A member of the RNA family "Group II catalytic intron D1-D4-3" from Denitratisoma oestradiolicum, 168 nucleotides long. Lineage of the source: Bacteria > Betaproteobacteria > Nitrosomonadales > Sterolibacteriaceae > Denitratisoma. The match comes from Rfam's covariance-model search (114 bits). Rfam describes the family as follows. Group II introns are found in rRNA, tRNA and mRNA of organelles in fungi, plants and protists, and also in mRNA in bacteria. The pairing is the family consensus, mapped onto this sequence. Its family is annotated with Group II intron splicing in the Gene Ontology.

[Rfam]
RNA sequence: AAGGCCGCGAGGGCUUGUCCGGAGGAAGCCGGAGCGCAAACGUGCGAGGUGACGAACAGAAACUGCAUAGAAGGCCGAGGGAGCCGAGGCGAGCUGGCACCACACAGCGAAGCCCGACGGUACGGCGCCUACGGUAAAUGCAGCGCUUGUGCACGGAAACAUCGCGUU
Numbered sequence: 001a002a003g004g005c006c007g008c009g010a011g012g013g014c015u016u017g018u019c020c021g022g023a024g025g026a027a028g029c030c031g032g033a034g035c036g037c038a039a040a041c042g043u044g045c046g047a048g049g050u051g052a053c054g055a056a057c058a059g060a061a062a063c064u065g066c067a068u069a070g071a072a073g074g075c076c077g078a079g080g081g082a083g084c085c086g087a088g089g090c091g092a093g094c095u096g097g098c099a100c101c102a103c104a105c106a107g108c109g110a111a112g113c114c115c116g117a118c119g120g121u122a123c124g125g126c127g128c129c130u131a132c133g134g135u136a137a138a139u140g141c142a143g144c145g146c147u148u149g150u151g152c153a154c155g156g157a158a159a160c161a162u163c164g165c166g167u168u
Base pairs, nucleotide, nucleotide: 001016002015003014005012006011028168030166031165036160041155042154043153044152045151046150047148048147049146050145051144063143064142065141066140067139068138074135075134076133079130080129081128083126084125088114089113090112093108094107095106096105